A member of the RNA family "mir-30 microRNA precursor family" from Salmo salar, 65 nucleotides long. Its family is annotated with RISC complex and gene silencing by miRNA in the Gene Ontology. It is one of the family's seed sequences. Pairs were carried over by alignment from the consensus structure, which was predicted with PFOLD. Taxonomically the source falls in Salmo (Eukaryota, Metazoa, Chordata, Salmoninae).
[Rfam]
RNA sequence: UGUAAACAUCCUUGACUGGAAGCUGGUGUUCGGUCAGCGAGGGCUUUCAGUCGGAUGUUUGCAGC
Numbered sequence: 001u002g003u004a005a006a007c008a009u010c011c012u013u014g015a016c017u018g019g020a021a022g023c024u025g026g027u028g029u030u031c032g033g034u035c036a037g038c039g040a041g042g043g044c045u046u047u048c049a050g051u052c053g054g055a056u057g058u059u060u061g062c063a064g065c
Stems, first nucleotide, its partner, number of pairs: 001063011015051010